The family of this 96-nucleotide sequence from Gossypium klotzschianum is "Plastid-rps12 3UTR RNA". On this family, see Richter et al., Plant Commun 2023: "Retrograde signaling in plants: A critical review focusing on the GUN pathway and beyond". Plastid rpl20 is a non-coding RNA (ncRNA) recognised in plastids. It was found in the three prime untranslated region (3UTR) of rps12 gene, its 3UTR location sugest a role in transcript maduration. The base pairs follow the family's consensus structure, which was predicted with LocARNA. Taxonomically the source falls in Gossypium (Eukaryota, Euphyllophyta, rosids, Malvoideae).
RNA sequence: GGUUUCUAUUGGUGCAAAUCCAAUCUUGAAAUUUAAGAUAAGAAAAAAUUCCUCAUUGGUGGUAAAUACUUAUCCAUUAAGCGGGAAAAAUCCUAU
Numbered sequence: 001g002g003u004u005u006c007u008a009u010u011g012g013u014g015c016a017a018a019u020c021c022a023a024u025c026u027u028g029a030a031a032u033u034u035a036a037g038a039u040a041a042g043a044a045a046a047a048a049u050u051c052c053u054c055a056u057u058g059g060u061g062g063u064a065a066a067u068a069c070u071u072a073u074c075c076a077u078u079a080a081g082c083g084g085g086a087a088a089a090a091u092c093c094u095a096u
Stems, first nucleotide, its partner, number of pairs: 009023004052085003055077002058074005